The family of this 70-nucleotide RNA from Thermodesulfovibrio yellowstonii is "Fluoride riboswitch aptamer (crcB RNA motif)".
NCBI's taxonomy places the organism under Bacteria, Pseudomonadati, Thermodesulfovibrionia, Thermodesulfovibrionales, Thermodesulfovibrio yellowstonii.
RNA sequence: UUUAAAAAAGGCGAUGGAGUUCGCCUGUAAGUGCCUCUGAUUUUCAGGGGCUGAUAACUCCUACCUUAAA
Numbered sequence: 001u002u003u004a005a006a007a008a009a010g011g012c013g014a015u016g017g018a019g020u021u022c023g024c025c026u027g028u029a030a031g032u033g034c035c036u037c038u039g040a041u042u043u044u045c046a047g048g049g050g051c052u053g054a055u056a057a058c059u060c061c062u063a064c065c066u067u068a069a070a
Stems, first nucleotide, its partner, number of pairs: 010025004016061006033051007